[Rfam]
RNA sequence: AAUGAACAAAGGCAAAUCCGUCGAAAGGCGGAGACGCAAAGCCACGGGUCUAAGUCAUGAGGCGCACCUUCAUGAGACGAUCGCCGGGUUACCUAU
Numbered sequence: 001a002a003u004g005a006a007c008a009a010a011g012g013c014a015a016a017u018c019c020g021u022c023g024a025a026a027g028g029c030g031g032a033g034a035c036g037c038a039a040a041g042c043c044a045c046g047g048g049u050c051u052a053a054g055u056c057a058u059g060a061g062g063c064g065c066a067c068c069u070u071c072a073u074g075a076g077a078c079g080a081u082c083g084c085c086g087g088g089u090u091a092c093c094u095a096u
Stems, first nucleotide, its partner, number of pairs: 012037002017032006040090004045086003048081003055075008
Notes
A member of the RNA family "c-di-GMP-I riboswitch aptamer" from Paenibacillus whitsoniae, 96 nucleotides long. Gene Ontology term of the family: cyclic-di-GMP binding. The organism belongs to Paenibacillus, within Bacteria. On this family, see Sudarsan et al., Science 2008: "Riboswitches in Eubacteria Sense the Second Messenger Cyclic Di-GMP".